A member of the RNA family "Bacteroidales small SRP" from Pontibacter lucknowensis, 104 nucleotides long. The family's RNA type in Rfam is non-coding RNA gene. The match comes from Rfam's covariance-model search (81 bits). Pairs were carried over by alignment from the consensus structure, which is taken from published work. Gene Ontology terms of the family: signal recognition particle, plasma membrane targeting and SRP-dependent cotranslational protein targeting to membrane, signal sequence recognition.
[Rfam]
RNA sequence: UUUGUAACGGCAAAUCGGCACGGCCAGCUCCCGUCGAACUCCCCCAGGGCCGGAAGGCAGCAAGGGUAGAUGGUCGAAGCGGCGCGAUGUUGGUUUGCCACUUU
Numbered sequence: 001u002u003u004g005u006a007a008c009g010g011c012a013a014a015u016c017g018g019c020a021c022g023g024c025c026a027g028c029u030c031c032c033g034u035c036g037a038a039c040u041c042c043c044c045c046a047g048g049g050c051c052g053g054a055a056g057g058c059a060g061c062a063a064g065g066g067u068a069g070a071u072g073g074u075c076g077a078a079g080c081g082g083c084g085c086g087a088u089g090u091u092g093g094u095u096u097g098c099c100a101c102u103u104u
Base pairs, nucleotide, nucleotide: 009099010098011097012096013095014094015093016092017091018090019089020088021086022085023083024082